Shown here is a 75-nucleotide RNA from Turnera subulata, a member of the family "Plastid-ycf2 5UTR RNA". Rfam describes the family as follows. Plastid ycf2 is a non-coding RNA (ncRNA) recognised in plastids. It was found in the prime untranslated region (5UTR) of ycf2 genes, it presents a tRNA-like motif which suggests it can be involved in mRNA maturation, particularly involved in defining the precise 5' end of the transcript. Rfam classes the family as a cis-regulatory element. Lineage of the source: Eukaryota > Embryophyta > Tracheophyta > Spermatophyta > Turnera. A search with the family's covariance model found it, with a score of 86 bits.

RNA sequence: AUGAAUCCAGUAGGAAAUGAACCGACAAAUUCGCCAAUUAUGAGCUGGGUGUUUUAACCAUUCAGCCAUGGAUGC
Numbered sequence: 001a002u003g004a005a006u007c008c009a010g011u012a013g014g015a016a017a018u019g020a021a022c023c024g025a026c027a028a029a030u031u032c033g034c035c036a037a038u039u040a041u042g043a044g045c046u047g048g049g050u051g052u053u054u055u056a057a058c059c060a061u062u063c064a065g066c067c068a069u070g071g072a073u074g075c
Base pairs, nucleotide, nucleotide: 003075005073006072007071008070010026011025013023014022040069041068042067044066045065046064047063048062049061050060051059